[Rfam]
MIR535 microRNA precursor family: a 98-nucleotide sequence from Musa acuminata.
RNA sequence: AUGGUUGGCUGACGACGAGAGAGAGCACGCCGGUCCGCAAUCAUGCGGGCGGCCAUGGCUGUGUGUACCAGCGUGCUCUUUCUCGUUGUCACCCCGCU
Numbered sequence: 001a002u003g004g005u006u007g008g009c010u011g012a013c014g015a016c017g018a019g020a021g022a023g024a025g026c027a028c029g030c031c032g033g034u035c036c037g038c039a040a041u042c043a044u045g046c047g048g049g050c051g052g053c054c055a056u057g058g059c060u061g062u063g064u065g066u067a068c069c070a071g072c073g074u075g076c077u078c079u080u081u082c083u084c085g086u087u088g089u090c091a092c093c094c095c096g097c098u
Stems, first nucleotide, its partner, number of pairs: 010091005016085002020081002023078001025076006032069003
Dot-bracket structure: .........(((((.((..((.(.((((((.(((................................))).)))))).).))..)).))))).......

About this RNA: The family has 20 seed sequences and 544 matches in Rfam 15.1. On this family, see Zeng et al., Nucleic Acids Res 2010: "Conservation and divergence of microRNAs and their functions in Euphorbiaceous plants".